Background
DUF805 RNA: a 69-nucleotide sequence from Hymenobacter sp. 5317J-9. By type it is a cis-regulatory element. Clan: DUF805 clan. It scores 71 bits against the family's covariance model. The organism belongs to Hymenobacter, within Bacteria.

[Rfam]
RNA sequence: AGGCAGUGGAGCCCAGAACCCACGCAAAAAAACGGGGCGUUACCGAAAAGCCUUACGAGUAGGAUUUGC
Numbered sequence: 001a002g003g004c005a006g007u008g009g010a011g012c013c014c015a016g017a018a019c020c021c022a023c024g025c026a027a028a029a030a031a032a033c034g035g036g037g038c039g040u041u042a043c044c045g046a047a048a049a050g051c052c053u054u055a056c057g058a059g060u061a062g063g064a065u066u067u068g069c
Stems, first nucleotide, its partner, number of pairs: 006023004036052003043063002